[Rfam]
RNA sequence: UAAUGAAGAUAUAAAAGGAGCUGGACGGUAAUCCAACUCCCACGUAGAACCGUUUAAGACGGUGACCUUAUUAUUAGACUAUAAC
Number, nucleotide and partner (000 for none) at each position: 001u000002a000003a000004u000005g000006a000007a000008g000009a000010u000011a000012u000013a000014a000015a000016a000017g000018g000019a000020g000021c000022u035023g034024g033025a032026c000027g000028g000029u000030a000031a000032u025033c024034c023035a022036a000037c000038u000039c000040c000041c000042a000043c000044g000045u000046a000047g000048a000049a063050c062051c061052g060053u059054u058055u000056a000057a000058g054059a053060c052061g051062g050063u049064g000065a000066c000067c000068u000069u000070a000071u000072u000073a000074u000075u000076a000077g000078a000079c000080u000081a000082u000083a000084a000085c000
RNA: RNA anti-toxin A